[Rfam]
Nucleotides: 063
Stems, first nucleotide, its partner, number of pairs: 002060003006055010017044004022040005
Number, partner (000 for none) and nucleotide at each position: 001000u002060g003059c004058a005000a006055a007054a008053g009052u010051g011050c012049u013048u014047a015046u016000a017044g018043u019042g020041c021000a022040g023039g024038u025037a026036g027000a028000a029000u030000u031000u032000a033000a034000a035000c036026c037025u038024a039023c040022u041020g042019c043018a044017c045000c046015a047014u048013a049012a050011g051010c052009a053008c054007u055006u056000c057000c058004u059003g060002c061000a062000u063000c
The record is a 63-nucleotide RNA from Xenopus tropicalis, which matches "mir-17 microRNA precursor family" in Rfam.
The family's consensus secondary structure was predicted with RNAalifold.
Rfam 15.1 lists 4,687 matches to the family in 648 species.
Gene Ontology terms of the family: miRNA-mediated post-transcriptional gene silencing and RISC complex.
For this family Rfam cites "Identification of novel genes coding for small expressed RNAs" (Lagos-Quintana et al., Science, 2001).